[Rfam]
RNA sequence: AAAUAAUUGAAUUGGCAUUCUAAGACAGUGGGUGAGACAUUCUCAUAAAUCCUACCGAGGUGCGAGUACUUUAGUUUUCGGACUUAAGGUCUCUCCUGUCUUGGAGAGACCUUUUCAUUAUGGUUGA
Numbered sequence: 001a002a003a004u005a006a007u008u009g010a011a012u013u014g015g016c017a018u019u020c021u022a023a024g025a026c027a028g029u030g031g032g033u034g035a036g037a038c039a040u041u042c043u044c045a046u047a048a049a050u051c052c053u054a055c056c057g058a059g060g061u062g063c064g065a066g067u068a069c070u071u072u073a074g075u076u077u078u079c080g081g082a083c084u085u086a087a088g089g090u091c092u093c094u095c096c097u098g099u100c101u102u103g104g105a106g107a108g109a110c111c112u113u114u115u116c117a118u119u120a121u122g123g124u125u126g127a
Base pairs, nucleotide, nucleotide: 028055029054030053031052032051034044035043036042087112088111089110090109091108092107093106094105095104096103
This 127-nucleotide RNA from Proteiniclasticum sediminis belongs to the Rfam family "Ribosomal protein L10 leader".
The base pairs follow the family's consensus structure, which was predicted with CMfinder.
From the family's description: This family is a putative r-protein leader autoregulatory structure found in B. subtilis and other low-GC Gram-positive bacteria. It is located in the 5' untranslated regions of mRNAs encoding ribosomal proteins L10 and L12 (rplJ-rplL). A Rho-independent transcription terminator structure that is probably involved in regulation is included at the 3' end.